[Rfam]
RNA sequence: AAUUCUUGAUAAAAAUAUACCCGUAUAUGCUUGAUAAUAUGGUUCAAGCGUUUCUACCAGACUGCCGUAAAUUGUCUGACUAUGGGUGUUUAUAGAUAUCAU
Dot-bracket structure: .................((((((((...((((((.........))))))........(((((.(.......).)))))..))))))))..............
Numbered sequence: 001a002a003u004u005c006u007u008g009a010u011a012a013a014a015a016u017a018u019a020c021c022c023g024u025a026u027a028u029g030c031u032u033g034a035u036a037a038u039a040u041g042g043u044u045c046a047a048g049c050g051u052u053u054c055u056a057c058c059a060g061a062c063u064g065c066c067g068u069a070a071a072u073u074g075u076c077u078g079a080c081u082a083u084g085g086g087u088g089u090u091u092a093u094a095g096a097u098a099u100c101a102u
Stems, first nucleotide, its partner, number of pairs: 018088008029049006058078005064072001